[Rfam]
RNA sequence: CCGCAGGCUCCAGCGUGGGGGGGCCUGGCGUGGCUCCCACCAUUCCUGCAGCGCUGCCAGAGCAUCCCGGGGCCGUUUGAGGCCUCUCCCGGCGCUUCCCGGGGGCGGUUAUGGAAACCCCGGACAUGC
Numbered sequence: 001c002c003g004c005a006g007g008c009u010c011c012a013g014c015g016u017g018g019g020g021g022g023g024c025c026u027g028g029c030g031u032g033g034c035u036c037c038c039a040c041c042a043u044u045c046c047u048g049c050a051g052c053g054c055u056g057c058c059a060g061a062g063c064a065u066c067c068c069g070g071g072g073c074c075g076u077u078u079g080a081g082g083c084c085u086c087u088c089c090c091g092g093c094g095c096u097u098c099c100c101g102g103g104g105g106c107g108g109u110u111a112u113g114g115a116a117a118c119c120c121c122g123g124a125c126a127u128g129c
Stems, first nucleotide, its partner, number of pairs: 003057003007054002016042003021036005068122005083108002086105003090101003
Rfam assigns this 129-nucleotide RNA from Ifrita kowaldi to the family "Small nucleolar RNA SNORA9". Rfam's curators write: ACA9 is a member of the H/ACA class of snoRNA that guide the sites of modification of uridines to pseudouridines. Taxonomically the source falls in Ifrita (Eukaryota, Vertebrata, Euteleostomi, Dinosauria). Rfam links the family to the GO terms RNA processing and nucleolus. Rfam classes the family as an H/ACA-box small nucleolar RNA. The base pairs follow the family's consensus structure, which was predicted with PFOLD.